[Rfam]
RNA: MIR6274 microRNA precursor family
RNA sequence: AAAUAAAAUUAUUUCGCUAUUUCCGACUAAUAAUAUAAUGAUACGUGAAAAAAUUAUUUUAUGUGUCAUUGUGUUAUUGGCCAGGAAUAGCAAAAAGUGAUAUUUUC
Numbered sequence: 001a002a003a004u005a006a007a008a009u010u011a012u013u014u015c016g017c018u019a020u021u022u023c024c025g026a027c028u029a030a031u032a033a034u035a036u037a038a039u040g041a042u043a044c045g046u047g048a049a050a051a052a053a054u055u056a057u058u059u060u061a062u063g064u065g066u067c068a069u070u071g072u073g074u075u076a077u078u079g080g081c082c083a084g085g086a087a088u089a090g091c092a093a094a095a096a097g098u099g100a101u102a103u104u105u106u107c
Stems, first nucleotide, its partner, number of pairs: 002106002005103001012095003016091005022085002025082001027080024